[Rfam]
RNA sequence: AACCACGGACGACCGUGGUGCAGAAGAUUUCCGGCGGGACGACCCGC
Numbered sequence: 001a002a003c004c005a006c007g008g009a010c011g012a013c014c015g016u017g018g019u020g021c022a023g024a025a026g027a028u029u030u031c032c033g034g035c036g037g038g039a040c041g042a043c044c045c046g047c
Base pairs, nucleotide, nucleotide: 002019003018004017005016006015007014008013034047035046036045037044038043
RNA: Guanidine-II riboswitch aptamer (mini-ykkC)
Organism: Pseudomonas oryzae